[Rfam]
RNA sequence: AUAAUGAGACUUCCGUAAUUCGCGGCCCGGCCAUAAAGAAGGCGGGGUGGCCGAGAGGCCAAUGA
Numbered sequence: 001a002u003a004a005u006g007a008g009a010c011u012u013c014c015g016u017a018a019u020u021c022g023c024g025g026c027c028c029g030g031c032c033a034u035a036a037a038g039a040a041g042g043c044g045g046g047g048u049g050g051c052c053g054a055g056a057g058g059c060c061a062a063u064g065a
Stems, first nucleotide, its partner, number of pairs: 012062001013025004026047003030043003048061003
RNA: pemK RNA